The record is a 93-nucleotide RNA sequence from Bacillus sp. THAF10, which matches "pan motif" in Rfam. The family's consensus secondary structure is taken from published work.
RNA sequence: CGGGCAGUAUCUUCUAAAAGAACUGCACCAGUUGUUACACCCUAUUUUUAUAAACCAUAUAUCUGCCUUGAUCCAAAGGACUAGGACAGAGGG
Dot-bracket structure: .(((((((.((........))))))).)).................................((((((.(.(((...)))).))).)))....